Source information
Rfam assigns this 68-nucleotide RNA from Nocardia asteroides to the family "ASdes TB sRNA". Pairs were carried over by alignment from the consensus structure, which is taken from published work. On this family, see Arnvig and Young, Mol Microbiol 2009: "Identification of small RNAs in Mycobacterium tuberculosis". Lineage of the source: Bacteria > Bacillati > Actinomycetes > Nocardia > Nocardia asteroides. Rfam 15.1 lists 1,192 matches to the family in 825 species.
RNA sequence: AGGGCGACCGGGUCGACGGCGCGGGUCACCACCAGGUAGUCGCGCAUGACGGUGCCGUGCCGGUUCUC
Numbered sequence: 001a002g003g004g005c006g007a008c009c010g011g012g013u014c015g016a017c018g019g020c021g022c023g024g025g026u027c028a029c030c031a032c033c034a035g036g037u038a039g040u041c042g043c044g045c046a047u048g049a050c051g052g053u054g055c056c057g058u059g060c061c062g063g064u065u066c067u068c
Stems, first nucleotide, its partner, number of pairs: 005062002008059001011030003015027003035056004040052003